[Rfam]
RNA sequence: AUUUAUCUUCAGGGAUAGGUGAGAUUCCUUACCGGCGGUAGACAGUACUGACUGUGAGCCGCGAGCCGCUUUGGCAGAUCCGGUCAAAGUCCGGAGCCGACAGUGAGAUGUAUUUUAUUAAUACAUUAAGUCUGGAUGGGAGAAGAUAAGA
Numbered sequence: 001a002u003u004u005a006u007c008u009u010c011a012g013g014g015a016u017a018g019g020u021g022a023g024a025u026u027c028c029u030u031a032c033c034g035g036c037g038g039u040a041g042a043c044a045g046u047a048c049u050g051a052c053u054g055u056g057a058g059c060c061g062c063g064a065g066c067c068g069c070u071u072u073g074g075c076a077g078a079u080c081c082g083g084u085c086a087a088a089g090u091c092c093g094g095a096g097c098c099g100a101c102a103g104u105g106a107g108a109u110g111u112a113u114u115u116u117a118u119u120a121a122u123a124c125a126u127u128a129a130g131u132c133u134g135g136a137u138g139g140g141a142g143a144a145g146a147u148a149a150g151a
Stems, first nucleotide, its partner, number of pairs: 003149008017029003033099002035062004058097001065075003079095005101134003

Shown here is a 151-nucleotide sequence from Acetivibrio straminisolvens, a member of the family "FMN riboswitch aptamer (RFN element)". Taxonomically the source falls in Acetivibrio straminisolvens (Bacteria, Clostridia, Acetivibrionales, Acetivibrio).